[Rfam]
RNA: SAM (S-adenosyl methionine) riboswitch aptamer
RNA sequence: GGUCAUGAGUACCAGUGACAGCCCCGGCUUGCUGGUCGGCAACCCUCCAUCCGCGGUGGGGUGCCCCGGGUGAGGACCUGGCCUGCCGGUCAUUCGACGGUAGGCAAGCGCGUAGA
Numbered sequence: 001g002g003u004c005a006u007g008a009g010u011a012c013c014a015g016u017g018a019c020a021g022c023c024c025c026g027g028c029u030u031g032c033u034g035g036u037c038g039g040c041a042a043c044c045c046u047c048c049a050u051c052c053g054c055g056g057u058g059g060g061g062u063g064c065c066c067c068g069g070g071u072g073a074g075g076a077c078c079u080g081g082c083c084u085g086c087c088g089g090u091c092a093u094u095c096g097a098c099g100g101u102a103g104g105c106a107a108g109c110g111c112g113u114a115g116a
Stems, first nucleotide, its partner, number of pairs: 001078004009037001011036006020029002038065003043061003047056002081105007089098003